The family of this 399-nucleotide RNA sequence from Hymenobacter ginkgonis is "Bacterial RNase P class A". By type it is a ribozyme.

[Rfam]
RNA sequence: GCAGUGAGCCACCCCACCGCCGCGCCCAACGCAAAUGCGGGCGGGGAGGAAAGUCCGGGCAACGCAGGGCACCCUGCUUCCUAACGGGAAGGACUGGCCAAUCGGGCCAGGACAGCCAGUGCCACAGAGAAUAACCGCCCGCAAGGGUAAGGGUGAAAAGGUGCGGUAAGAGCGCACCAGCGGCUAGGUGACUACGCCGGCUGGGUAAACCUCAGGGGUUGCAAAACCAAAUAAGCGAACACGUUGGCGGCCUUCGGGCAGCUGGCACCGGGCGGCCCGCUCGGGUUCGCGGGUAGGUUGCUAGAGCCCGUCGGCGACGGCGGGCCUAGAUAAAUGGUGGGGCUGCUUCGGAGGAAACUCGGGGGCAGACAGAACCCGGCUUAUCGGCUCAUUGCUUAA
Numbered sequence: 001g002c003a004g005u006g007a008g009c010c011a012c013c014c015c016a017c018c019g020c021c022g023c024g025c026c027c028a029a030c031g032c033a034a035a036u037g038c039g040g041g042c043g044g045g046g047a048g049g050a051a052a053g054u055c056c057g058g059g060c061a062a063c064g065c066a067g068g069g070c071a072c073c074c075u076g077c078u079u080c081c082u083a084a085c086g087g088g089a090a091g092g093a094c095u096g097g098c099c100a101a102u103c104g105g106g107c108c109a110g111g112a113c114a115g116c117c118a119g120u121g122c123c124a125c126a127g128a129g130a131a132u133a134a135c136c137g138c139c140c141g142c143a144a145g146g147g148u149a150a151g152g153g154u155g156a157a158a159a160g161g162u163g164c165g166g167u168a169a170g171a172g173c174g175c176a177c178c179a180g181c182g183g184c185u186a187g188g189u190g191a192c193u194a195c196g197c198c199g200g201c202u203g204g205g206u207a208a209a210c211c212u213c214a215g216g217g218g219u220u221g222c223a224a225a226a227c228c229a230a231a232u233a234a235g236c237g238a239a240c241a242c243g244u245u246g247g248c249g250g251c252c253u254u255c256g257g258g259c260a261g262c263u264g265g266c267a268c269c270g271g272g273c274g275g276c277c278c279g280c281u282c283g284g285g286u287u288c289g290c291g292g293g294u295a296g297g298u299u300g301c302u303a304g305a306g307c308c309c310g311u312c313g314g315c316g317a318c319g320g321c322g323g324g325c326c327u328a329g330a331u332a333a334a335u336g337g338u339g340g341g342g343c344u345g346c347u348u349c350g351g352a353g354g355a356a357a358c359u360c361g362g363g364g365g366c367a368g369a370c371a372g373a374a375c376c377c378g379g380c381u382u383a384u385c386g387g388c389u390c391a392u393u394g395c396u397u398a399a
Stems, first nucleotide, its partner, number of pairs: 001395010011384001012342007020046002023043005051382003055379005060221004067278004072217005077091005092113001094110006114212002119210002121206003135152002137148004160178006180201001181199004185194003225299004235290006269283005306325008